[Rfam]
RNA sequence: CCCUGGAGAGACUUGUUAAAUCAAGCAUCGAAGAAGCAAUUCAUAAUUUGUAUAUUUAUGAGGAAACUUUCAGAUACAAGGACAGGG
Numbered sequence: 001c002c003c004u005g006g007a008g009a010g011a012c013u014u015g016u017u018a019a020a021u022c023a024a025g026c027a028u029c030g031a032a033g034a035a036g037c038a039a040u041u042c043a044u045a046a047u048u049u050g051u052a053u054a055u056u057u058a059u060g061a062g063g064a065a066a067c068u069u070u071c072a073g074a075u076a077c078a079a080g081g082a083c084a085g086g087g
Base pairs, nucleotide, nucleotide: 001087002086003085004084005083012025013024014023015022027075028074029073030071031070034069035068036067040062041061042060043059044058045057046056